The family of this 100-nucleotide RNA sequence from Malus domestica is "Small nucleolar RNA Z221/R21b".
A reference for the family is Chen et al. (2003), "The high diversity of snoRNAs in plants: identification and comparative study of 120 snoRNA genes from Oryza sativa", Nucleic Acids Res.
Rfam 15.1 lists 588 matches to the family in 222 species.
Rfam links the family to the GO terms RNA processing and nucleolus.
The family's RNA type in Rfam is C/D-box small nucleolar RNA.
The match comes from Rfam's covariance-model search (69 bits).
[Rfam]
RNA sequence: GGGCAGUGAUGAUCACCUGAGGAAGUCAUGCACCACUCUGAUGAUUUGAUUUCAAUCAAUCUGUGCUGAUAAAUUUCUCAUACCCAAUUCUGCUGAGCCC
Numbered sequence: 001g002g003g004c005a006g007u008g009a010u011g012a013u014c015a016c017c018u019g020a021g022g023a024a025g026u027c028a029u030g031c032a033c034c035a036c037u038c039u040g041a042u043g044a045u046u047u048g049a050u051u052u053c054a055a056u057c058a059a060u061c062u063g064u065g066c067u068g069a070u071a072a073a074u075u076u077c078u079c080a081u082a083c084c085c086a087a088u089u090c091u092g093c094u095g096a097g098c099c100c
Base pairs, nucleotide, nucleotide: 001100002099003098004097